[Rfam]
RNA: Manganese Mn2+ riboswitch aptamer (yybP-ykoY)
Organism: Morganella morganii
RNA sequence: CCGGUCACGUCAUUGGGGAGUAGCCUGUUCUGUUAUUAACCUCUCAGGAAAAUAACAGAAAAUCCGUAUCAACAUACUUGCGUGAUAUUAUAUCAGCAUGGUGCGGAUGCCGUUUCGGUUGGCAAGACCAUAGACACGCAGUUCACCGGAGGUCGGGGUUGGAUUGUGUGUAUAUGGAUAAGCUACCCGACCGAGACU
Dot-bracket structure: ...........................((((((((((.............)))))))))).((((((((((.......(((..............)))))))))))))...(.((...............................................................................)).)